[Rfam]
RNA sequence: UGGCACCCUCAACGUGGGAGGGCCUCGGAAAUGAGGGGAUUCCGUGAGGAAGAGGACAGGCGAAAGAACGGUCGAAGUCCGUCAAGCUGAAACUAAACUCGCUCCGAUCACCAACGGGAACCGUGGCGCGGCGUCAGAAUCGGAUAGGUAAGUGCGUGUCCGAAAUGGGACCAUGAGAAUUUCAAAGCAACAUCAAAUCUAUGUAUCAGGACAAUUAAAAGGCCCUUAAAGAUACGAGGAGUAAAGGUUAAAGGUAAUGAUUUUAAAUUUUUUUUUUGAAUUUUGUAUAAAGACACCCUUGGCCCUU
Numbered sequence: 001u002g003g004c005a006c007c008c009u010c011a012a013c014g015u016g017g018g019a020g021g022g023c024c025u026c027g028g029a030a031a032u033g034a035g036g037g038g039a040u041u042c043c044g045u046g047a048g049g050a051a052g053a054g055g056a057c058a059g060g061c062g063a064a065a066g067a068a069c070g071g072u073c074g075a076a077g078u079c080c081g082u083c084a085a086g087c088u089g090a091a092a093c094u095a096a097a098c099u100c101g102c103u104c105c106g107a108u109c110a111c112c113a114a115c116g117g118g119a120a121c122c123g124u125g126g127c128g129c130g131g132c133g134u135c136a137g138a139a140u141c142g143g144a145u146a147g148g149u150a151a152g153u154g155c156g157u158g159u160c161c162g163a164a165a166u167g168g169g170a171c172c173a174u175g176a177g178a179a180u181u182u183c184a185a186a187g188c189a190a191c192a193u194c195a196a197a198u199c200u201a202u203g204u205a206u207c208a209g210g211a212c213a214a215u216u217a218a219a220a221g222g223c224c225c226u227u228a229a230a231g232a233u234a235c236g237a238g239g240a241g242u243a244a245a246g247g248u249u250a251a252a253g254g255u256a257a258u259g260a261u262u263u264u265a266a267a268u269u270u271u272u273u274u275u276u277u278g279a280a281u282u283u284u285g286u287a288u289a290a291a292g293a294c295a296c297c298c299u300u301g302g303c304c305c306u307u
Stems, first nucleotide, its partner, number of pairs: 006037003014032002043055001045053001098147002103144002108139001109137001112133001115130002155175001156171002159169004181228001184227002187223002235278007245263006289307002292304001294302001

Background: The family of this 307-nucleotide RNA sequence from Macaca nemestrina is "Mason-Pfizer monkey virus packaging signal". This family represents a group of sequences that are related to the Mason-Pfizer monkey virus (MPMV) packaging signal. Pairs were carried over by alignment from the consensus structure, which was predicted with PFOLD. It is annotated as a cis-regulatory element.